Singlet oxygen resistance RNA X: a 75-nucleotide RNA sequence from Jannaschia pohangensis. Taxonomically the source falls in Jannaschia (Bacteria, Pseudomonadati, Rhodobacterales, Roseobacteraceae). SorX (RSs2461)like SorY is a singlet oxygen induced sRNA that counteracts oxidative stress by targeting mRNA for a transporter in Rhodobacter. It also has an impact on resistance against organic hydroperoxides. It targets SD sequence of potA mRNA via an aSD sequence. The family's RNA type in Rfam is small RNA. It scores 66 bits against the family's covariance model.
RNA sequence: UACCGGCGCAUCUGCGGGACGUACAGAUGCAACCUCCCUGUUGGACUUGCCCGGGCUUUCGGCCCGGGUUCUUUU
Numbered sequence: 001u002a003c004c005g006g007c008g009c010a011u012c013u014g015c016g017g018g019a020c021g022u023a024c025a026g027a028u029g030c031a032a033c034c035u036c037c038c039u040g041u042u043g044g045a046c047u048u049g050c051c052c053g054g055g056c057u058u059u060c061g062g063c064c065c066g067g068g069u070u071c072u073u074u075u
Stems, first nucleotide, its partner, number of pairs: 008030007049069008
The base pairs follow the family's consensus structure.